Vault RNA: a 101-nucleotide RNA sequence from Pan troglodytes. From the family's description: This family of RNAs are found as part of the enigmatic vault ribonucleoprotein complex. The complex consists of a major vault protein (MVP), two minor vault proteins (VPARP and TEP1), and several small untranslated RNA molecules. It has been suggested that the vault complex is involved in drug resistance. It is annotated as a non-coding RNA gene. The organism belongs to Pan, within Eukaryota. The base pairs follow the family's consensus structure, which is taken from published work.
RNA sequence: GGGUCGGAGUUAGCUCAAGCGGUUACCUCCUCAUGCCGGACUUUCUAUCUGUCCAUCUCUGUGCUGGGGUUCGAGACCCGCGGGUGCUUACUGACCCUUUU
Numbered sequence: 001g002g003g004u005c006g007g008a009g010u011u012a013g014c015u016c017a018a019g020c021g022g023u024u025a026c027c028u029c030c031u032c033a034u035g036c037c038g039g040a041c042u043u044u045c046u047a048u049c050u051g052u053c054c055a056u057c058u059c060u061g062u063g064c065u066g067g068g069g070u071u072c073g074a075g076a077c078c079c080g081c082g083g084g085u086g087c088u089u090a091c092u093g094a095c096c097c098u099u100u101u
Stems, first nucleotide, its partner, number of pairs: 002096006013085004019081004027075003